This 244-nucleotide part of an RNA from Gossypium laxum belongs to the Rfam family "Eukaryotic large subunit ribosomal RNA".

RNA sequence: CGGAUGGCGGUUGGCAAUGAGCCUCGAGAGGAUGUGGAAUGGCGAGAGCUAGUCCACCAAUCGGCUCAAGGCGUGGACCAACAUGGGUCGUGGCGGUAGCCCAAGCCCAGGCCUUUGAUACGCCUAUGGAGAUGUCAUCACCUCAAUCGUGAGAUCCAGCACGUGUCGUCUUAACGUGGUUCGACACCUGUAUGCCGCAGGCGUCGGCUUGUGGGCUCCCCAUUCGGCUCAUCUUGGAACACAG
Numbered sequence: 001c002g003g004a005u006g007g008c009g010g011u012u013g014g015c016a017a018u019g020a021g022c023c024u025c026g027a028g029a030g031g032a033u034g035u036g037g038a039a040u041g042g043c044g045a046g047a048g049c050u051a052g053u054c055c056a057c058c059a060a061u062c063g064g065c066u067c068a069a070g071g072c073g074u075g076g077a078c079c080a081a082c083a084u085g086g087g088u089c090g091u092g093g094c095g096g097u098a099g100c101c102c103a104a105g106c107c108c109a110g111g112c113c114u115u116u117g118a119u120a121c122g123c124c125u126a127u128g129g130a131g132a133u134g135u136c137a138u139c140a141c142c143u144c145a146a147u148c149g150u151g152a153g154a155u156c157c158a159g160c161a162c163g164u165g166u167c168g169u170c171u172u173a174a175c176g177u178g179g180u181u182c183g184a185c186a187c188c189u190g191u192a193u194g195c196c197g198c199a200g201g202c203g204u205c206g207g208c209u210u211g212u213g214g215g216c217u218c219c220c221c222a223u224u225c226g227g228c229u230c231a232u233c234u235u236g237g238a239a240c241a242c243a244g
Stems, first nucleotide, its partner, number of pairs: 001226007009218002011215002017074001021072004026067001078207002081204002084201001229244001232241001